[Rfam]
Small nucleolar RNA R12: an 80-nucleotide sequence from Dendrobium catenatum.
The family has 9 seed sequences and 992 matches in Rfam 15.1.
A reference for the family is Chen et al. (2003), "The high diversity of snoRNAs in plants: identification and comparative study of 120 snoRNA genes from Oryza sativa", Nucleic Acids Res.
The base pairs follow the family's consensus structure, which was predicted with PFOLD.
snoR12 is a C/D box small nucleolar RNA, which acts as a methylation guide for 25S ribosomal RNA in plants. snoR12 has been alternatively named snoZ44 in Arabidopsis and snoZ131 in rice.
RNA sequence: GUGCAGGAUGAUGAAACAAAUAAGACGGAUUCACAUUGAUUUCUACAAAAUGAUAUGUUAACCAGCUACAUCUGACACAU
Numbered sequence: 001g002u003g004c005a006g007g008a009u010g011a012u013g014a015a016a017c018a019a020a021u022a023a024g025a026c027g028g029a030u031u032c033a034c035a036u037u038g039a040u041u042u043c044u045a046c047a048a049a050a051u052g053a054u055a056u057g058u059u060a061a062c063c064a065g066c067u068a069c070a071u072c073u074g075a076c077a078c079a080u
Stems, first nucleotide, its partner, number of pairs: 001080003006076001